[Rfam]
RNA sequence: GCAUGUAGUACCAAUGAUGAAUGGUUUUUGGACGCGGGUUCAACUCUACCAUCAAGUCUUAGUUUUAGUGUUUUUUAUGAAAAGCCUUACUGAAUAAGGGUUCAACGACAGUUUAUCUGGUAAUCGUAUUUUUCAUAAAACAUUGCAUAAAUUCUUGGUUAUGAUUAUAUUAUUCAUAACUUUAGUAAACAAAUAAGUCGUUUUAUGAACCUCAGAUUCAUAAAAUGCACCGUAUAAAUUGCGAAUCGAUUUAUACACAACGGGGGUGAUUUAGGAUUCGACAGGAAUUUUGAAGUCUGAGGUGCAUGCCGUGGGGCGGUUGGCCACGUAAAAAGCCGCAAAAAAAUAGUCGCAAACGACGAAAACUACGCACUAGCAGCUUAA
Numbered sequence: 001g002c003a004u005g006u007a008g009u010a011c012c013a014a015u016g017a018u019g020a021a022u023g024g025u026u027u028u029u030g031g032a033c034g035c036g037g038g039u040u041c042a043a044c045u046c047u048a049c050c051a052u053c054a055a056g057u058c059u060u061a062g063u064u065u066u067a068g069u070g071u072u073u074u075u076u077a078u079g080a081a082a083a084g085c086c087u088u089a090c091u092g093a094a095u096a097a098g099g100g101u102u103c104a105a106c107g108a109c110a111g112u113u114u115a116u117c118u119g120g121u122a123a124u125c126g127u128a129u130u131u132u133u134c135a136u137a138a139a140a141c142a143u144u145g146c147a148u149a150a151a152u153u154c155u156u157g158g159u160u161a162u163g164a165u166u167a168u169a170u171u172a173u174u175c176a177u178a179a180c181u182u183u184a185g186u187a188a189a190c191a192a193a194u195a196a197g198u199c200g201u202u203u204u205a206u207g208a209a210c211c212u213c214a215g216a217u218u219c220a221u222a223a224a225a226u227g228c229a230c231c232g233u234a235u236a237a238a239u240u241g242c243g244a245a246u247c248g249a250u251u252u253a254u255a256c257a258c259a260a261c262g263g264g265g266g267u268g269a270u271u272u273a274g275g276a277u278u279c280g281a282c283a284g285g286a287a288u289u290u291u292g293a294a295g296u297c298u299g300a301g302g303u304g305c306a307u308g309c310c311g312u313g314g315g316g317c318g319g320u321u322g323g324c325c326a327c328g329u330a331a332a333a334a335g336c337c338g339c340a341a342a343a344a345a346a347u348a349g350u351c352g353c354a355a356a357c358g359a360c361g362a363a364a365a366c367u368a369c370g371c372a373c374u375a376g377c378a379g380c381u382u383a384a
Base pairs, nucleotide, nucleotide: 001309002308003307004306005305016297017296024288025287026286028284029283030282041268042267044265045264046263047262310328311327312326313325